[Rfam]
RNA sequence: UAACGACUGUGCUCCCGUUAACCGAGACCUAUGGGAGGGUAAAUCACGUCUCUCAUAUCCACACUAGAGGGUGGUGUGGGUGAGAUUUAUAAAU
Dot-bracket structure: ...........(((((((.....[[[[[..)))))))..........]]]]].....(((((((.........)))))))..............
RNA: PhotoRC-II RNA